[Rfam]
RNA sequence: CAUAAAAUAAAAAUAAUUCUUAAUAUAAGCCGAAAAUAUGGUGAGGCGUUUCUACCAAAGACCGUAAAUCUUUGACUAUUAGGAAUUAUGAUGGAUUG
Numbered sequence: 001c002a003u004a005a006a007a008u009a010a011a012a013a014u015a016a017u018u019c020u021u022a023a024u025a026u027a028a029g030c031c032g033a034a035a036a037u038a039u040g041g042u043g044a045g046g047c048g049u050u051u052c053u054a055c056c057a058a059a060g061a062c063c064g065u066a067a068a069u070c071u072u073u074g075a076c077u078a079u080u081a082g083g084a085a086u087u088a089u090g091a092u093g094g095a096u097u098g
Stems, first nucleotide, its partner, number of pairs: 018084008029047003034042001056074006

The family of this 98-nucleotide RNA sequence from Hathewaya histolytica is "Purine riboswitch aptamer". Riboswitches are metabolite binding domains within certain messenger RNAs that serve as precision sensors for their corresponding targets. The base pairs follow the family's consensus structure, which is taken from published work. It scores 70 bits against the family's covariance model. Taxonomically the source falls in Hathewaya (Bacteria, Bacillati, Bacillota, Clostridiaceae). For this family Rfam cites "Riboswitches Control Fundamental Biochemical Pathways in Bacillus subtilis and Other Bacteria" (Mandal et al., Cell, 2003).